[Rfam]
RNA: c-di-AMP riboswitch aptamer (ydaO/yuaA leader)
RNA sequence: UGCACAACCACACCUGAAUAUUCAAGUGGACAGGAGCGAGGAAACCACCGCGAGCCAACCAGGUUCGCACCGGUCGGUAGCUGGAAACAGUCGCCAUCCUCGGGGUGAAGCUUCUGAGAAGACCUAGAAGCCGGGCACAGUGAUCCUCCGCCCGAACCCGACAGCUCACCUCGCAGGCGUCAACAGGAGAGGAA
Numbered sequence: 001u002g003c004a005c006a007a008c009c010a011c012a013c014c015u016g017a018a019u020a021u022u023c024a025a026g027u028g029g030a031c032a033g034g035a036g037c038g039a040g041g042a043a044a045c046c047a048c049c050g051c052g053a054g055c056c057a058a059c060c061a062g063g064u065u066c067g068c069a070c071c072g073g074u075c076g077g078u079a080g081c082u083g084g085a086a087a088c089a090g091u092c093g094c095c096a097u098c099c100u101c102g103g104g105g106u107g108a109a110g111c112u113u114c115u116g117a118g119a120a121g122a123c124c125u126a127g128a129a130g131c132c133g134g135g136c137a138c139a140g141u142g143a144u145c146c147u148c149c150g151c152c153c154g155a156a157c158c159c160g161a162c163a164g165c166u167c168a169c170c171u172c173g174c175a176g177g178c179g180u181c182a183a184c185a186g187g188a189g190a191g192g193a194a
Stems, first nucleotide, its partner, number of pairs: 011179001013177002019035001021033001036174006046102001103159003111130006133153004
Dot-bracket structure: ..........(.((....(.(...........).)((((((....(.......................................................)(((.....((((((........))))))..((((.............))))...))).........)))))).)).)...............